Shown here is a 66-nucleotide sequence from Fukomys damarensis, a member of the family "XIST 3' intron conserved motif". It scores 85 bits against the family's covariance model. Rfam classes the family as a long non-coding RNA. The organism belongs to Fukomys, within Eukaryota. The base pairs follow the family's consensus structure, which is taken from published work.

RNA sequence: UUGAUCUUUUCUAUUUUUCAGUCACUCAGAGGGUGGGACAGGAGGAAGAGUGAAAGAAAAGGUCAA
Dot-bracket structure: ((((((((((((.........((((((....................)))))).))))))))))))